[Rfam]
RNA: Small nucleolar RNA SNORD35
RNA sequence: GGCAGACGAUGGCUUUUUCUCAUGAUGGUCUGCGGAUGCUGCUGUGGGCGGUGGCAAAAACACCCAUAGCUCAGCUGAUGCCAGGAA
Numbered sequence: 001g002g003c004a005g006a007c008g009a010u011g012g013c014u015u016u017u018u019c020u021c022a023u024g025a026u027g028g029u030c031u032g033c034g035g036a037u038g039c040u041g042c043u044g045u046g047g048g049c050g051g052u053g054g055c056a057a058a059a060a061c062a063c064c065c066a067u068a069g070c071u072c073a074g075c076u077g078a079u080g081c082c083a084g085g086a087a
Base pairs, nucleotide, nucleotide: 001082002081003080004079